[Rfam]
RNA sequence: AUAAUGAUACUUCUCUACGGAGCUGACGGAGAACCCGGCAGAGGUGAAACUCCUAUGA
Numbered sequence: 001a002u003a004a005u006g007a008u009a010c011u012u013c014u015c016u017a018c019g020g021a022g023c024u025g026a027c028g029g030a031g032a033a034c035c036c037g038g039c040a041g042a043g044g045u046g047a048a049a050c051u052c053c054u055a056u057g058a
Stems, first nucleotide, its partner, number of pairs: 012055001013022003023041003027037003042054003
Dot-bracket structure: ...........((((....)))(((.(((.....))).)))(((.......))))...
The family of this 58-nucleotide RNA is "pemK RNA".